Shown here is a 204-nucleotide sequence from Paraburkholderia steynii, a member of the family "Burkholderia sRNA Bp1_Cand738_SIPHT". For this family Rfam cites "Computational discovery and RT-PCR validation of novel Burkholderia conserved and Burkholderia pseudomallei unique sRNAs" (Khoo et al., BMC Genomics, 2012). The match comes from Rfam's covariance-model search (189 bits). Taxonomically the source falls in Paraburkholderia (Bacteria, Pseudomonadati, Pseudomonadota, Burkholderiales).
RNA sequence: GAAAAAACCAGCGUCGAUAUGCGCUGGUGGAGACUACAUAUGACCGUCAAUACCGUGCAGGAGCGGUAAGAGCGACGCGUUGCGUCUGUAGGACCGGAGGACGGUGGUAAAAACUAUCAAUUCCUGCAACCGAUGUGACCGGAUUCUAGCAGGGUUUUAUAGAUCGUCAACACUAUAGGAUGUCAAAACUAUAACUAAUUGUAA
Numbered sequence: 001g002a003a004a005a006a007a008c009c010a011g012c013g014u015c016g017a018u019a020u021g022c023g024c025u026g027g028u029g030g031a032g033a034c035u036a037c038a039u040a041u042g043a044c045c046g047u048c049a050a051u052a053c054c055g056u057g058c059a060g061g062a063g064c065g066g067u068a069a070g071a072g073c074g075a076c077g078c079g080u081u082g083c084g085u086c087u088g089u090a091g092g093a094c095c096g097g098a099g100g101a102c103g104g105u106g107g108u109a110a111a112a113a114c115u116a117u118c119a120a121u122u123c124c125u126g127c128a129a130c131c132g133a134u135g136u137g138a139c140c141g142g143a144u145u146c147u148a149g150c151a152g153g154g155u156u157u158u159a160u161a162g163a164u165c166g167u168c169a170a171c172a173c174u175a176u177a178g179g180a181u182g183u184c185a186a187a188a189c190u191a192u193a194a195c196u197a198a199u200u201g202u203a204a
Stems, first nucleotide, its partner, number of pairs: 008027007044107005051068005074086005134172003140166003145163004